Rfam assigns this 175-nucleotide sequence from gamma proteobacterium HdN1 to the family "Group II catalytic intron D1-D4-3". Lineage of the source: Bacteria > Pseudomonadati > Pseudomonadota > Gammaproteobacteria. A search with the family's covariance model found it, with a score of 103 bits.

RNA sequence: GUCAUCGCGAGGUGAGGUCUAAAGGAAGCCAAGGAAAAAUCGCGGGGCGAUGAACAAAAACCGGAUAUGAGGUGUGACAUAAGCGGGGCGUAUGGGCACGUGACCAUCAAGCCCUCCAUCUGCAAUUGGCUUGUGUUUUAUAAAUCCUGCGCCUACGCGAGGAACGUUAACUGUC
Numbered sequence: 001g002u003c004a005u006c007g008c009g010a011g012g013u014g015a016g017g018u019c020u021a022a023a024g025g026a027a028g029c030c031a032a033g034g035a036a037a038a039a040u041c042g043c044g045g046g047g048c049g050a051u052g053a054a055c056a057a058a059a060a061c062c063g064g065a066u067a068u069g070a071g072g073u074g075u076g077a078c079a080u081a082a083g084c085g086g087g088g089c090g091u092a093u094g095g096g097c098a099c100g101u102g103a104c105c106a107u108c109a110a111g112c113c114c115u116c117c118a119u120c121u122g123c124a125a126u127u128g129g130c131u132u133g134u135g136u137u138u139u140a141u142a143a144a145u146c147c148u149g150c151g152c153c154u155a156c157g158c159g160a161g162g163a164a165c166g167u168u169a170a171c172u173g174u175c
Stems, first nucleotide, its partner, number of pairs: 002015005028175001030173002035167001040160005045154005061149001063147004072141003076137007086114004092107004